[Rfam]
RNA sequence: UUGACAAUUGGACCGUGAAGGCAUACUUUCAGGAGUGAGGGUAGAGCUGGGUUUCCCCCGCCCUGGUAGUCUUAGUAUGCUGGGUAGCUAAUCACUAAGAGCACCACGAUGAUGAGUAUCUUCAUCAUGACCCUUUCCUUAUU
Numbered sequence: 001u002u003g004a005c006a007a008u009u010g011g012a013c014c015g016u017g018a019a020g021g022c023a024u025a026c027u028u029u030c031a032g033g034a035g036u037g038a039g040g041g042u043a044g045a046g047c048u049g050g051g052u053u054u055c056c057c058c059c060g061c062c063c064u065g066g067u068a069g070u071c072u073u074a075g076u077a078u079g080c081u082g083g084g085u086a087g088c089u090a091a092u093c094a095c096u097a098a099g100a101g102c103a104c105c106a107c108g109a110u111g112a113u114g115a116g117u118a119u120c121u122u123c124a125u126c127a128u129g130a131c132c133c134u135u136u137c138c139u140u141a142u143u
Base pairs, nucleotide, nucleotide: 031139032138033137034136037135038134039133040132041131042130046061047060064106065105066104109128110127111126112125113124114123
Rfam assigns this 143-nucleotide sequence from Escherichia coli to the family "Short Intergenic Abundant RNA". The sequence is in the family's curated seed alignment. The family's RNA type in Rfam is antitoxin RNA. About the family: This family contains multiple ncRNA from E. coli that were identified in a large scale screen of E. coli, were they were called candidates 43,55 and 61. These RNAs have also been identified by other groups and called QUAD RNAs. Lineage of the source: Bacteria > Pseudomonadota > Enterobacteriaceae > Escherichia > Escherichia coli. A reference for the family is Wassarman et al. (2001), "Identification of novel small RNAs using comparative genomics and microarrays", Genes Dev.